[Rfam]
RNA: ALIL pseudoknot
RNA sequence: CGCCCUUGACCAAGACGGAUACUCGACCGCCCGUUCCGCAAAUGAUCGCAUUUCUCGAUGAUCACCGUGGCGUCUUUGGUGUCGGGCCGAUCUGCCGGGUUCUGGGGAUCGCACCA
Numbered sequence: 001c002g003c004c005c006u007u008g009a010c011c012a013a014g015a016c017g018g019a020u021a022c023u024c025g026a027c028c029g030c031c032c033g034u035u036c037c038g039c040a041a042a043u044g045a046u047c048g049c050a051u052u053u054c055u056c057g058a059u060g061a062u063c064a065c066c067g068u069g070g071c072g073u074c075u076u077u078g079g080u081g082u083c084g085g086g087c088c089g090a091u092c093u094g095c096c097g098g099g100u101u102c103u104g105g106g107g108a109u110c111g112c113a114c115c116a
Base pairs, nucleotide, nucleotide: 014031016029017028018027077116078115079114080113081112088111089110091108092107093106095104097102